RNA sequence: UUGAAGAGGAUCACAACAAAAAAGGGCGCAUUUUAGUGCGCCCUUUUCCCAUGCUU
Numbered sequence: 001u002u003g004a005a006g007a008g009g010a011u012c013a014c015a016a017c018a019a020a021a022a023a024g025g026g027c028g029c030a031u032u033u034u035a036g037u038g039c040g041c042c043c044u045u046u047u048c049c050c051a052u053g054c055u056u
Base pairs, nucleotide, nucleotide: 020047021046022045023044024043025042026041027040028039029038030037031036
Salmonella enterica sRNA STnc320: a 56-nucleotide sequence from Salmonella enterica. The match comes from Rfam's covariance-model search (60 bits). The source organism's lineage runs through Bacteria, Pseudomonadati, Pseudomonadota, Salmonella and Salmonella enterica subsp. arizonae.